[Rfam]
A member of the RNA family "Small nucleolar RNA U2-30" from Crocuta crocuta, 69 nucleotides long.
Rfam classes the family as a C/D-box small nucleolar RNA.
Gene Ontology terms of the family: RNA processing and nucleolus.
For this family Rfam cites "Guide RNAs with 5' Caps and Novel Box C/D snoRNA-like Domains for Modification of snRNAs in Metazoa" (Tycowski et al., Curr Biol, 2004).
RNA sequence: GAUCAAUGAUGAAAACAUUUCACUACAGACCUUUAUAACUAUAAGGUUUCGACACUUGCUCUGAGUUCA
Numbered sequence: 001g002a003u004c005a006a007u008g009a010u011g012a013a014a015a016c017a018u019u020u021c022a023c024u025a026c027a028g029a030c031c032u033u034u035a036u037a038a039c040u041a042u043a044a045g046g047u048u049u050c051g052a053c054a055c056u057u058g059c060u061c062u063g064a065g066u067u068c069a
Base pairs, nucleotide, nucleotide: 001068002067004065013034014033015032018029019028
It scores 67 bits against the family's covariance model.